A member of the RNA family "L31-Firmicutes ribosomal protein leader", 30 nucleotides long. Clan: Ribosomal Protein L31 Leader clan. On this family, see Eckert and Weinberg, BMC Microbiol 2020: "Discovery of 20 novel ribosomal leader candidates in bacteria and archaea".
[Rfam]
RNA sequence: CUAUGACUUUUAAAAUCAUGGCAGAAGGAG
Numbered sequence: 001c002u003a004u005g006a007c008u009u010u011u012a013a014a015a016u017c018a019u020g021g022c023a024g025a026a027g028g029a030g
Base pairs, nucleotide, nucleotide: 001021002020003019004018005017008014009013